This 216-nucleotide part of an RNA from Trichoderma atroviride belongs to the Rfam family "Ascomycota telomerase RNA". Pairs were carried over by alignment from the consensus structure. Clan: Telomerase clan. A search with the family's covariance model found it, with a score of 339 bits.
[Rfam]
RNA sequence: UCCCCCACAGUUUCCCGAUUCUCGUUUUCCGCACGGAAUGUCUAUUGCAGGCCCCCCUCCCCAGGCUUGGUCAUCCGCAAUAUGCCGCUUCCAAGCCUACUUCAGGAUCUUGUUGAACGCUGCAGUUGGAUCUAUUGCGGUGCGUCUCUGCCCGGCACCCAGGCAGCCAAGUCUAGCUGGGGGAACGAGUUUCGGAACUUAACCCUAAGCAUACAU
Numbered sequence: 001u002c003c004c005c006c007a008c009a010g011u012u013u014c015c016c017g018a019u020u021c022u023c024g025u026u027u028u029c030c031g032c033a034c035g036g037a038a039u040g041u042c043u044a045u046u047g048c049a050g051g052c053c054c055c056c057c058u059c060c061c062c063a064g065g066c067u068u069g070g071u072c073a074u075c076c077g078c079a080a081u082a083u084g085c086c087g088c089u090u091c092c093a094a095g096c097c098u099a100c101u102u103c104a105g106g107a108u109c110u111u112g113u114u115g116a117a118c119g120c121u122g123c124a125g126u127u128g129g130a131u132c133u134a135u136u137g138c139g140g141u142g143c144g145u146c147u148c149u150g151c152c153c154g155g156c157a158c159c160c161a162g163g164c165a166g167c168c169a170a171g172u173c174u175a176g177c178u179g180g181g182g183g184a185a186c187g188a189g190u191u192u193c194g195g196a197a198c199u200u201a202a203c204c205c206u207a208a209g210c211a212u213a214c215a216u
Base pairs, nucleotide, nucleotide: 009199010198011197015195016194017193018192